[Rfam]
RNA sequence: UCAAUUUUCUUCGAUAUAGAACACUAAUGUCGAUAAAAUAUCUUGAAUACUCU
Numbered sequence: 001u002c003a004a005u006u007u008u009c010u011u012c013g014a015u016a017u018a019g020a021a022c023a024c025u026a027a028u029g030u031c032g033a034u035a036a037a038a039u040a041u042c043u044u045g046a047a048u049a050c051u052c053u
Stems, first nucleotide, its partner, number of pairs: 011033007
RNA: Plastid-atpF group II-D1 intron
Organism: Cajanus cajan